The record is a 102-nucleotide RNA from Salinibacillus xinjiangensis, which matches "SAM riboswitch aptamer (S box leader)" in Rfam. The family has 457 seed sequences and 9,625 matches in Rfam 15.1.

RNA sequence: UUCUUAUCCAGAGAGGUGGAGGGACUGGCCCGACGAAGCCUCGGCAACAGACUGAAUUCAGUACUGUGCCAAUUCCAGUAGCGCAAUGCUAGAAGAUAAGAA
Numbered sequence: 001u002u003c004u005u006a007u008c009c010a011g012a013g014a015g016g017u018g019g020a021g022g023g024a025c026u027g028g029c030c031c032g033a034c035g036a037a038g039c040c041u042c043g044g045c046a047a048c049a050g051a052c053u054g055a056a057u058u059c060a061g062u063a064c065u066g067u068g069c070c071a072a073u074u075c076c077a078g079u080a081g082c083g084c085a086a087u088g089c090u091a092g093a094a095g096a097u098a099a100g101a102a
Stems, first nucleotide, its partner, number of pairs: 001102008013042005021031003025078004043070004048066002051062004074094001079091005
The source organism's lineage runs through Bacteria, Bacillati, Bacilli, Bacillaceae and Salinibacillus.